The family of this 69-nucleotide sequence is "Transposase-2 RNA".
It is one of the family's seed sequences.
Rfam classes the family as a small RNA.

RNA sequence: GAAGUGCGAACCAAGCGUGCGCGAAAGCGCUGUGAGACUUGGAGCGGACAGUCGUAAGGCUGUCCUGCA
Numbered sequence: 001g002a003a004g005u006g007c008g009a010a011c012c013a014a015g016c017g018u019g020c021g022c023g024a025a026a027g028c029g030c031u032g033u034g035a036g037a038c039u040u041g042g043a044g045c046g047g048a049c050a051g052u053c054g055u056a057a058g059g060c061u062g063u064c065c066u067g068c069a
Stems, first nucleotide, its partner, number of pairs: 011042005019030004046065008